[Rfam]
RNA sequence: GGUGUGCAAUAGACUUACCUCCACGUGGUGCACACUGGGCAACGUAUAUCAUACGGUAAAAAAGUCUAU
Numbered sequence: 001g002g003u004g005u006g007c008a009a010u011a012g013a014c015u016u017a018c019c020u021c022c023a024c025g026u027g028g029u030g031c032a033c034a035c036u037g038g039g040c041a042a043c044g045u046a047u048a049u050c051a052u053a054c055g056g057u058a059a060a061a062a063a064g065u066c067u068a069u
Stems, first nucleotide, its partner, number of pairs: 001036007017029003043055005
RNA: HDV ribozyme from F. prausnitzii